The record is a 105-nucleotide RNA from Parablautia intestinalis, which matches "THF (Tetrahydrofolate) riboswitch aptamer" in Rfam. About the family: Tetrahydrofolate (THF) riboswitch was first reported for Ames et al. as an RNA motif in 5' untranslated (5'-UTR)regions of folate transport and biosynthesis genes in Firmicutes genomes. Rfam 15.1 lists 747 matches to the family in 747 species.
[Rfam]
RNA sequence: UGCAGAGUAGAUUUGUGCGCGUUAAGUGCCGGCUGAACAGGGAGUUGACAACCGGACGAAAAGAACCAGGCAGUUCUUGCGGUGCAUGGAUCGCAUCCCGCUGCA
Numbered sequence: 001u002g003c004a005g006a007g008u009a010g011a012u013u014u015g016u017g018c019g020c021g022u023u024a025a026g027u028g029c030c031g032g033c034u035g036a037a038c039a040g041g042g043a044g045u046u047g048a049c050a051a052c053c054g055g056a057c058g059a060a061a062a063g064a065a066c067c068a069g070g071c072a073g074u075u076c077u078u079g080c081g082g083u084g085c086a087u088g089g090a091u092c093g094c095a096u097c098c099c100g101c102u103g104c105a
Base pairs, nucleotide, nucleotide: 001105002104003103004102005101010092011091012090013089014088015087016086017085018084019083020081021080022079026057027056029055030054031053032052034050035049040098041097042096044094061078062077063076064075065074066073
Lineage of the source: Bacteria > Bacillati > Bacillota > Clostridia > Parablautia. Rfam links the family to the GO term tetrahydrofolate metabolic process.